[Rfam]
RNA sequence: CCUGCAUCAUCAUAUCACCUUCAUAUAUGUUUGAGAAUAAGGCUCAAACGUUUCUACUAGAACACCGUAAAUGUUCGGACUAUGAAGGCGGGGGUCUUGCCG
Number, nucleotide and partner (000 for none) at each position: 001c000002c000003u000004g000005c000006a000007u000008c000009a000010u000011c000012a000013u000014a000015u000016c000017a000018c088019c087020u086021u085022c084023a083024u082025a081026u000027a000028u000029g049030u048031u047032u046033g045034a044035g043036a000037a000038u000039a000040a000041g000042g000043c035044u034045c033046a032047a031048a030049c029050g000051u000052u000053u000054c000055u000056a000057c000058u078059a000060g076061a075062a074063c073064a072065c000066c000067g000068u000069a000070a000071a000072u064073g063074u062075u061076c060077g000078g058079a000080c000081u025082a024083u023084g022085a021086a020087g019088g018089c000090g000091g000092g000093g000094g000095u000096c000097u000098u000099g000100c000101c000102g000
This 102-nucleotide RNA sequence from Gracilibacillus thailandensis belongs to the Rfam family "Purine riboswitch aptamer". About the family: Riboswitches are metabolite binding domains within certain messenger RNAs that serve as precision sensors for their corresponding targets. Allosteric rearrangement of mRNA structure is mediated by ligand binding, and this results in modulation of gene expression. A class of riboswitches that selectively recognises guanine and becomes saturated at concentrations as low as 5 nM. In Bacillus subtilis, this mRNA motif is located on at least five separate transcriptional units that together encode 17 genes that are mostly involved in purine transport and purine nucleotide biosynthesis. It has also been shown that some members of this family are specific for adenine instead. Hence this family are termed purine riboswitches. Pairs were carried over by alignment from the consensus structure, which is taken from published work. Lineage of the source: Bacteria > Bacillota > Bacilli > Caryophanales > Gracilibacillus.